[Rfam]
RNA sequence: ACAACAUUGGGACCGUCGAUCUACCGAGCAGUAUCACUGGUUCGGAGGAAGAUCUUCCUUUCGUCGC
Numbered sequence: 001a002c003a004a005c006a007u008u009g010g011g012a013c014c015g016u017c018g019a020u021c022u023a024c025c026g027a028g029c030a031g032u033a034u035c036a037c038u039g040g041u042u043c044g045g046a047g048g049a050a051g052a053u054c055u056u057c058c059u060u061u062c063g064u065c066g067c
Stems, first nucleotide, its partner, number of pairs: 004064002010058003015053003020049003024045006

A member of the RNA family "mir-2774 microRNA precursor family" from Bombyx mori, 67 nucleotides long. Pairs were carried over by alignment from the consensus structure, which was predicted with RNAalifold. The organism belongs to Bombyx, within Eukaryota. A search with the family's covariance model found it, with a score of 64 bits.